[Rfam]
mir-181 microRNA precursor family: an 86-nucleotide RNA sequence from Coregonus sp. 'balchen'. Pairs were carried over by alignment from the consensus structure, which was predicted with PFOLD. A search with the family's covariance model found it, with a score of 72 bits. For this family Rfam cites "New microRNAs from mouse and human" (Lagos-Quintana et al., RNA, 2003).
RNA sequence: UCGCCUCGGUGAACAUUCAACGCUGUCGGUGAGUUUGGUAUGGAUCACAUAAAAACCAUCGACCGUUGACUGUGCCCCGUGGCCUG
Numbered sequence: 001u002c003g004c005c006u007c008g009g010u011g012a013a014c015a016u017u018c019a020a021c022g023c024u025g026u027c028g029g030u031g032a033g034u035u036u037g038g039u040a041u042g043g044a045u046c047a048c049a050u051a052a053a054a055a056c057c058a059u060c061g062a063c064c065g066u067u068g069a070c071u072g073u074g075c076c077c078c079g080u081g082g083c084c085u086g
Base pairs, nucleotide, nucleotide: 001086003084004082005081007079008078014072015071017069018068019067020066021065022064025063026062027061028060029059030058031057033056034055035054036053